[Rfam]
RNA sequence: UACUUAUCCAGAGAGGUGGAGGGACUGGCCCUACGAUACCUCGGCAACGGGUUUGUUGUUUCGUAACAAAUACCGUGCUAAUUCCUGCAAAUCGUUUAAGCGAUUUGAAAGAUAAGAA
Numbered sequence: 001u002a003c004u005u006a007u008c009c010a011g012a013g014a015g016g017u018g019g020a021g022g023g024a025c026u027g028g029c030c031c032u033a034c035g036a037u038a039c040c041u042c043g044g045c046a047a048c049g050g051g052u053u054u055g056u057u058g059u060u061u062c063g064u065a066a067c068a069a070a071u072a073c074c075g076u077g078c079u080a081a082u083u084c085c086u087g088c089a090a091a092u093c094g095u096u097u098a099a100g101c102g103a104u105u106u107g108a109a110a111g112a113u114a115a116g117a118a
Stems, first nucleotide, its partner, number of pairs: 001118001003116006013042005021031003025087001027085002043079004048075002050071001052069002083110001088107006